[Rfam]
RNA sequence: ACAGCCCGGUCGGGAGAGUCCUCGAUGCGUGUCGUCGGGGCGCCGAAGGAGCAAGCCUCCCCGCACACUCUCAGGCAUCCCAGACCGGCCGGGCGAG
Numbered sequence: 001a002c003a004g005c006c007c008g009g010u011c012g013g014g015a016g017a018g019u020c021c022u023c024g025a026u027g028c029g030u031g032u033c034g035u036c037g038g039g040g041c042g043c044c045g046a047a048g049g050a051g052c053a054a055g056c057c058u059c060c061c062c063g064c065a066c067a068c069u070c071u072c073a074g075g076c077a078u079c080c081c082a083g084a085c086c087g088g089c090c091g092g093g094c095g096a097g
Stems, first nucleotide, its partner, number of pairs: 006092008020040007042076003045072002049070003055064002
Glycine riboswitch aptamer: a 97-nucleotide RNA from Kutzneria sp. 744. The match comes from Rfam's covariance-model search (56 bits). Lineage of the source: Bacteria > Bacillati > Actinomycetota > Pseudonocardiales > Kutzneria.